[Rfam]
RNA sequence: CGAGGCGCCACUGGAGAGUAGCGGCGCGUGCCGCUCACCGAAGGGGGAAGCCGGCGCACGCCGGUGACGCUCUCAGGUACACAGACAGUGGGGACGGU
Numbered sequence: 001c002g003a004g005g006c007g008c009c010a011c012u013g014g015a016g017a018g019u020a021g022c023g024g025c026g027c028g029u030g031c032c033g034c035u036c037a038c039c040g041a042a043g044g045g046g047g048a049a050g051c052c053g054g055c056g057c058a059c060g061c062c063g064g065u066g067a068c069g070c071u072c073u074c075a076g077g078u079a080c081a082c083a084g085a086c087a088g089u090g091g092g093g094a095c096g097g098u
Stems, first nucleotide, its partner, number of pairs: 006093001008091006020035004037078003040074002044072003050065004